Rfam assigns this 593-nucleotide part of an RNA from Cloacimonas acidaminivorans to the family "Bacterial small subunit ribosomal RNA".
RNA sequence: GGACGAACGCUGGCGGCGUGGAUUAGGCAUGCAAGUCGAACGGUAUAAACCUUUCGGGGUUUAGAGAGUGGCGAACGGGUGAGUAACACGUAGGUAAUCUACCCUCAAAACGGGGACAACCCAGGGAAACUUGGGCUAAUACCGGAUGCGUGCAAGCAAUGUUUUGGUUGUUAAUGCUAUUCACGGAAGUGAGUAGUGUUAAUGGUUGAGAGCAUUAUUUGCAUAAAAGGUGGCAUUUGCUGCCGUUUGAGGAUGAGCCUGCGUCCUAUUAGUUAGUUGGUGAGGUAAUGGCUUACCAAGGCGAUGAUAGGUAGGCGGCCUUAACGGGUGGUCGCCCACACUGGGAUUGAGAGACGGCCCAGACUCCUACGGGAGGCAGCAGUCGAGAAUAGUCUACAAUGGACGGAAGUCUGAUAGUGCGACGCCGCGUGAACGAAGAAUCCCUUCGGGGUGUAAAGUUCUUUUAUACGUGAGCAGUGCCCUUUAUAUGAAUAGUAUAGAGGGAGGGAUUUAAGCGUAUGAAUAAGCAACGGCUAACUCCGUGCCAGCAGCCGCGGUAACACGGGGGUUGCAAGCGUUGUCCGGAAUUACUA
Numbered sequence: 001g002g003a004c005g006a007a008c009g010c011u012g013g014c015g016g017c018g019u020g021g022a023u024u025a026g027g028c029a030u031g032c033a034a035g036u037c038g039a040a041c042g043g044u045a046u047a048a049a050c051c052u053u054u055c056g057g058g059g060u061u062u063a064g065a066g067a068g069u070g071g072c073g074a075a076c077g078g079g080u081g082a083g084u085a086a087c088a089c090g091u092a093g094g095u096a097a098u099c100u101a102c103c104c105u106c107a108a109a110a111c112g113g114g115g116a117c118a119a120c121c122c123a124g125g126g127a128a129a130c131u132u133g134g135g136c137u138a139a140u141a142c143c144g145g146a147u148g149c150g151u152g153c154a155a156g157c158a159a160u161g162u163u164u165u166g167g168u169u170g171u172u173a174a175u176g177c178u179a180u181u182c183a184c185g186g187a188a189g190u191g192a193g194u195a196g197u198g199u200u201a202a203u204g205g206u207u208g209a210g211a212g213c214a215u216u217a218u219u220u221g222c223a224u225a226a227a228a229g230g231u232g233g234c235a236u237u238u239g240c241u242g243c244c245g246u247u248u249g250a251g252g253a254u255g256a257g258c259c260u261g262c263g264u265c266c267u268a269u270u271a272g273u274u275a276g277u278u279g280g281u282g283a284g285g286u287a288a289u290g291g292c293u294u295a296c297c298a299a300g301g302c303g304a305u306g307a308u309a310g311g312u313a314g315g316c317g318g319c320c321u322u323a324a325c326g327g328g329u330g331g332u333c334g335c336c337c338a339c340a341c342u343g344g345g346a347u348u349g350a351g352a353g354a355c356g357g358c359c360c361a362g363a364c365u366c367c368u369a370c371g372g373g374a375g376g377c378a379g380c381a382g383u384c385g386a387g388a389a390u391a392g393u394c395u396a397c398a399a400u401g402g403a404c405g406g407a408a409g410u411c412u413g414a415u416a417g418u419g420c421g422a423c424g425c426c427g428c429g430u431g432a433a434c435g436a437a438g439a440a441u442c443c444c445u446u447c448g449g450g451g452u453g454u455a456a457a458g459u460u461c462u463u464u465u466a467u468a469c470g471u472g473a474g475c476a477g478u479g480c481c482c483u484u485u486a487u488a489u490g491a492a493u494a495g496u497a498u499a500g501a502g503g504g505a506g507g508g509a510u511u512u513a514a515g516c517g518u519a520u521g522a523a524u525a526a527g528c529a530a531c532g533g534c535u536a537a538c539u540c541c542g543u544g545c546c547a548g549c550a551g552c553c554g555c556g557g558u559a560a561c562a563c564g565g566g567g568g569u570u571g572c573a574a575g576c577g578u579u580g581u582c583c584g585g586a587a588u589u590a591c592u593a
Stems, first nucleotide, its partner, number of pairs: 001583004006579006013428006019421002026384003030381003035072003040069002044064001046063007079339003088264008098256002103252007111145001113143002120135006152171004157166003176244001178242001265311003272302003277299008314336004318329004341362005364375004392418001394417003400413005431461004442451003466520006481504005527572005538567005548555002
NCBI's taxonomy places the organism under Bacteria, Cloacimonadales (SeqCode), Cloacimonadaceae (SeqCode), Cloacimonas (SeqCode), Cloacimonas acidaminivorans (SeqCode). It is one of the family's seed sequences.